[Rfam]
RNA sequence: AAGAGCUUCGAGUCAAAAAAACUGAGAAGUUUGAUUCAAAAAAAAA
Dot-bracket structure: ......((.(((((((..............))))))).))......
Numbered sequence: 001a002a003g004a005g006c007u008u009c010g011a012g013u014c015a016a017a018a019a020a021a022c023u024g025a026g027a028a029g030u031u032u033g034a035u036u037c038a039a040a041a042a043a044a045a046a
Stems, first nucleotide, its partner, number of pairs: 007040002010037007

This 46-nucleotide RNA sequence from Lotus japonicus belongs to the Rfam family "Plastid-rpl16 group II-D1 intron". The base pairs follow the family's consensus structure, which was predicted with LocARNA. Lineage of the source: Eukaryota > Mesangiospermae > rosids > Loteae > Lotus. For this family Rfam cites "Retrograde signaling in plants: A critical review focusing on the GUN pathway and beyond" (Richter et al., Plant Commun, 2023). Rfam describes the family as follows. Plastid-rpl16 is a non-coding RNA (ncRNA) recognised in plastids. The family has 538 seed sequences and 1,446 matches in Rfam 15.1.